Bacterial RNase P class A: a 348-nucleotide sequence from Candidatus Amphirhobacter heronislandensis.
RNA sequence: CGAGCCGGCCUGGCGAUCGCUUCGCCGCAAGGCGGAGAGGAAAGUCCGGACUCCAAAGGGCAGGGCGCUAGGUAACUCCUAGGCACCGCGAGGUGACGGAAAGUGCCACAGAAAACACACCGCCGAUGACGCCGCGAGGCGCACAGGCAAGGGUGCAAAGGUGCGGUAAGAGCGCACCGCGGCGGCGGCGACGGCGCCGGCAGGGCAAACCCCGCCCGGAGCAAGGCCAAGCAGGGUCUUUGGCGCUGCCCGCGCCGACCCGGGUGGGCUGCAUGAGGCCAGCGGCGACGCUGGUCCCAGAUGAAUGGUCGUCCACGACAGAAUCCGGCUUAGCGGCUGGCUCGCACC
Numbered sequence: 001c002g003a004g005c006c007g008g009c010c011u012g013g014c015g016a017u018c019g020c021u022u023c024g025c026c027g028c029a030a031g032g033c034g035g036a037g038a039g040g041a042a043a044g045u046c047c048g049g050a051c052u053c054c055a056a057a058g059g060g061c062a063g064g065g066c067g068c069u070a071g072g073u074a075a076c077u078c079c080u081a082g083g084c085a086c087c088g089c090g091a092g093g094u095g096a097c098g099g100a101a102a103g104u105g106c107c108a109c110a111g112a113a114a115a116c117a118c119a120c121c122g123c124c125g126a127u128g129a130c131g132c133c134g135c136g137a138g139g140c141g142c143a144c145a146g147g148c149a150a151g152g153g154u155g156c157a158a159a160g161g162u163g164c165g166g167u168a169a170g171a172g173c174g175c176a177c178c179g180c181g182g183c184g185g186c187g188g189c190g191a192c193g194g195c196g197c198c199g200g201c202a203g204g205g206c207a208a209a210c211c212c213c214g215c216c217c218g219g220a221g222c223a224a225g226g227c228c229a230a231g232c233a234g235g236g237u238c239u240u241u242g243g244c245g246c247u248g249c250c251c252g253c254g255c256c257g258a259c260c261c262g263g264g265u266g267g268g269c270u271g272c273a274u275g276a277g278g279c280c281a282g283c284g285g286c287g288a289c290g291c292u293g294g295u296c297c298c299a300g301a302u303g304a305a306u307g308g309u310c311g312u313c314c315a316c317g318a319c320a321g322a323a324u325c326c327g328g329c330u331u332a333g334c335g336g337c338u339g340g341c342u343c344g345c346a347c348c
Base pairs, nucleotide, nucleotide: 001344002343003342004341005340006339007338008337009336010335011333012313013312014311015310016309017308018307020037021036022035023034024033025032026031042331043330044329046328047327048326049325050324051221052220053219054218058251059250060249061248063217064216065215066214067213068082069081070080071079072078083097084095085094086093087092098212099211103210104209105206106205107204120152121151122148123147124146130141131140132139133138160178161177162176163175164174165173179201180199181198182197183196184195186193187192225270226269227268228267235260236259237258242256243255244254245253246252277296278295279294280293281292282291283290284289